[Rfam]
RNA sequence: CCGUGCCCGAGUGCAAGUAACCAAGAAUAGGCCGAUGAGAAUGGGUCCAGCCUAUCCUGGAUUACUUGAACCAGGUCACGG
Numbered sequence: 001c002c003g004u005g006c007c008c009g010a011g012u013g014c015a016a017g018u019a020a021c022c023a024a025g026a027a028u029a030g031g032c033c034g035a036u037g038a039g040a041a042u043g044g045g046u047c048c049a050g051c052c053u054a055u056c057c058u059g060g061a062u063u064a065c066u067u068g069a070a071c072c073a074g075g076u077c078a079c080g081g
Stems, first nucleotide, its partner, number of pairs: 002080004007075002011071002014068007022060001024058002027055006